Shown here is a 100-nucleotide sequence from Clostridium sp. BL8, a member of the family "SAM riboswitch aptamer (S box leader)". Pairs were carried over by alignment from the consensus structure, which is taken from published work.
[Rfam]
RNA sequence: CUCUUAUCCAGAGAGGUGGAGGGACAGGGCCCUAUGAAACCCGGCAACCAGUUUUUUAACAAUGGUGCCAAUUCCUGCAGUAAAGUCUGCAAGAUAAGAG
Numbered sequence: 001c002u003c004u005u006a007u008c009c010a011g012a013g014a015g016g017u018g019g020a021g022g023g024a025c026a027g028g029g030c031c032c033u034a035u036g037a038a039a040c041c042c043g044g045c046a047a048c049c050a051g052u053u054u055u056u057u058a059a060c061a062a063u064g065g066u067g068c069c070a071a072u073u074c075c076u077g078c079a080g081u082a083a084a085g086u087c088u089g090c091a092a093g094a095u096a097a098g099a100g
Stems, first nucleotide, its partner, number of pairs: 001100008013042001015041003021032003027076003043069004048065002051060003073092001078089003